[Rfam]
RNA: TPP riboswitch aptamer (THI element)
RNA sequence: CCUGCUCUAACGGGGUGCCGGAAACGGCUGAGAGGCGUCAUGCCAACCCGAAGAACCUGAUCCGGUUAGCACCGGCGUAGGGAUUAGACGCGAUCGACGC
Numbered sequence: 001c002c003u004g005c006u007c008u009a010a011c012g013g014g015g016u017g018c019c020g021g022a023a024a025c026g027g028c029u030g031a032g033a034g035g036c037g038u039c040a041u042g043c044c045a046a047c048c049c050g051a052a053g054a055a056c057c058u059g060a061u062c063c064g065g066u067u068a069g070c071a072c073c074g075g076c077g078u079a080g081g082g083a084u085u086a087g088a089c090g091c092g093a094u095c096g097a098c099g100c
Base pairs, nucleotide, nucleotide: 006088007087008086009085010084011050012049013048014047017028018027019026020025035043036042037041056081057080058079059078062075063074064073065072